[Rfam]
RNA sequence: AAUCAGGGCGGGCAGAACCUUCGAAAGGAGGCGACGCAAAGCCACCACCUAAGGAUUUAUCUACGGUAGCGGGGCUGCUGAA
Numbered sequence: 001a002a003u004c005a006g007g008g009c010g011g012g013c014a015g016a017a018c019c020u021u022c023g024a025a026a027g028g029a030g031g032c033g034a035c036g037c038a039a040a041g042c043c044a045c046c047a048c049c050u051a052a053g054g055a056u057u058u059a060u061c062u063a064c065g066g067u068a069g070c071g072g073g074g075c076u077g078c079u080g081a082a
Stems, first nucleotide, its partner, number of pairs: 012037002018031005040076004045072002047067003054061002
This 82-nucleotide RNA from Rhodoferax antarcticus belongs to the Rfam family "c-di-GMP-I riboswitch aptamer". The family's consensus secondary structure is taken from published work. From the family's description: GEMM was predicted in a large-scale screen for bacterial structured RNA regulatory elements.